Background: Rfam assigns this 135-nucleotide sequence from Myotis lucifugus to the family "Small nucleolar RNA SNORA70". Rfam 15.1 lists 5,173 matches to the family in 383 species. The organism belongs to Myotis, within Eukaryota. Rfam describes the family as follows. snoRNA U70 seems to be exclusive to mammals and is a member of the H/ACA class of snoRNA which contain H (ANANNA) and ACA box motifs. H/ACA box snoRNAs are involved in the conversion of uridines to pseudouridines (5-ribosyluracil) a constituent of structural RNAs (transfer, ribosomal, small nuclear, and small nucleolar). It is annotated as an H/ACA-box small nucleolar RNA. The literature on the family includes a 2000 paper in IUBMB Life by Charette and Gray, "Pseudouridine in RNA: what, where, how, and why". The base pairs follow the family's consensus structure, which was predicted with PFOLD. It scores 152 bits against the family's covariance model.
[Rfam]
RNA sequence: CUGCAGCCAAUUAAGCCGACCAUGCUCUUUUCCCCAUGGGGGUCUGGUGUGCAAUGGCUGCAAACAGCUGCAUCCUUGGUAGUGUACGCAACCUGUUGCUAGUAAGGGUUGCCUUAAGGGACCUUGGAUACAGCC
Dot-bracket structure: .((((.............((((..((((..........))))..)))).))))........................(((........((((((...........)))))).........)))............